[Rfam]
A member of the RNA family "Molybdenum/Tungsten riboswitch aptamer (Moco RNA motif)" from Cloacibacillus sp. An23, 121 nucleotides long. A search with the family's covariance model found it, with a score of 65 bits. NCBI's taxonomy places the organism under Bacteria, Thermotogati, Synergistota, Synergistales, Cloacibacillus.
RNA sequence: AUUUGGACGGUUCUCCGAGCCUGCCGCGCCUAAGGGCGAAAGCCUAGGGACUUCAGGCCGUCAGGGUCGCUUUCGGAAACGGGGCGGCCUCCCUCUGGAAAGGUGAACGGCGGAUUGUAUU
Dot-bracket structure: ...(......(((.((..(((((..(..((...((((....))))..)).)..))))).....((((((.(((((....)))))))))))((....))...)).)))......).......